Rfam assigns this 583-nucleotide part of an RNA from Thermofilum pendens to the family "Archaeal large subunit ribosomal RNA". Rfam links the family to the GO terms structural constituent of ribosome and ribosome. The sequence is in the family's curated seed alignment. The family is grouped with related families in Rfam's "LSU clan".
[Rfam]
Nucleotides: 583
Stems, first nucleotide, its partner, number of pairs: 001579008010571003014566002022400004027396002029392005035194004042186007051153001053151016078135005085118003096109005157174006197210001198208003211233006236339002242294006248274002251269006275284002299325009327336001329334001350378005356373001358372004409450003413447001414444007424434002461536001462534004466528001467525005474499002478493005502514004542560004546555003
Number, partner (000 for none) and nucleotide at each position: 001579g002578u003577c004576c005575c006574g007573g008572u009000g010571g011570g012569g013000c014566g015565a016000g017000a018000a019000g020000a021000c022400c023399c024398c025397g026000u027396g028395g029392a030391g031390c032389u033388u034000c035194a036193c037192a038191g039000c040000a041000g042186c043185c044184u045183g046182g047181c048180g049000u050000u051153g052000a053151g054150a055149c056148a057147c058146g059145g060144c061143u062142g063141c064140g065139g066138g067137u068136g069000c070000g071000u072000a073000g074000c075000g076000u077000a078135g079134g080133c081132g082131g083000g084000a085118g086117c087116g088000a089000u090000g091000a092000a093000c094000c095000u096109g097108g098107c099106c100105c101000u102000c103000c104000g105100g106099g107098g108097u109096c110000a111000g112000g113000g114000g115000a116087u117086g118085c119000g120000g121000c122000c123000a124000u125000g126000a127000a128000a129000c130000a131082c132081c133080g134079c135078u136068c137067a138066c139065c140064u141063g142062c143061g144060g145059c146058u147057g148056u149055g150054u151053c152000c153051c154000u155000a156000a157174c158173c159172c160171c161170g162169g163000g164000g165000u166000u167000u168000c169162c170161c171160g172159g173158g174157g175000g176000a177000c178000a179000g180048c181047g182046c183045c184044a185043g186042g187000u188000g189000g190000g191038c192037u193036g194035u195000u196000c197210g198208g199207c200206u201000g202000g203000g204000g205000c206200g207199g208198c209000a210197c211233a212232c213231c214230c215229c216228u217000g218000a219000g220000a221000a222000g223000g224000u225000a226000u227000c228216a229215g230214g231213g232212g233211u234000g235000c236339c237338c238000a239000a240000a241000g242294c243293u244292c245291g246290g247289c248274u249273c250000a251269g252268g253267c254266g255265g256264g257000u258000c259000a260000g261000a262000a263000c264256u265255c266254c267253g268252c269251c270000g271000u272000a273249g274248a275284g276283g277000g278000c279000a280000a281000g282000g283276c284275c285000a286000a287000a288000a289247g290246c291245c292244g293243g294242g295000c296000u297000g298000a299325c300324u301323g302322c303321g304320c305319c306318c307317u308000u309000a310000a311000a312000c313000g314000c315000g316000u317307g318306g319305g320304g321303c322302g323301c324300a325299g326000g327336c328000g329334g330000g331000a332000a333000a334329c335000c336327g337000g338237g339236g340000c341000c342000u343000a344000g345000c346000g347000a348000a349000c350378g351377c352376u353375c354374g355000u356373g357000c358372c359371c360370c361369c362000u363000u364000c365000g366000g367000u368000g369361g370360g371359g372358g373356c374354c375353g376352g377351g378350c379000a380000u381000g382000a383000c384000a385000g386000a387000a388033a389032a390031g391030u392029u393000a394000c395028c396027c397025c398024g399023g400022g401000a402000g403000u404000a405000a406000c407000c408000g409450g410449c411448u412000c413447g414444u415443c416442g417441c418440g419439g420438g421000c422000g423000a424434g425433a426000g427000u428000u429000c430000a431000c432000a433425u434424c435000g436000a437000c438420c439419c440418c441417g442416c443415g444414g445000u446000u447413u448411g449410g450409u451000a452000c453000c454000c455000a456000g457000a458000c459000g460000u461536c462534g463533u464532c465531u466528c467525u468524u469523c470522c471521u472000a473000g474499c475498u476000u477000g478493g479492c480491c481490c482489u483000g484000c485000a486000g487000c488000a489482g490481g491480g492479g493478c494000c495000a496000a497000g498475a499474g500000u501000g502514g503513g504512g505511c506000u507000g508000c509000u510000c511505g512504c513503c514502c515000a516000u517000u518000a519000a520000a521471a522470g523469g524468g525467a526000a527000c528466g529000u530000g531465a532464g533463a534462u535000g536461g537000g538000u539000u540000u541000a542560g543559a544558c545557c546555g547554u548553c549000g550000c551000g552000a553548g554547a555546c556000a557545g558544g559543u560542c561000g562000g563000a564000c565015u566014c567000u568000a569012c570011c571010u572008g573007c574006c575005g576004g577003g578002a579001c580000c581000g582000u583000u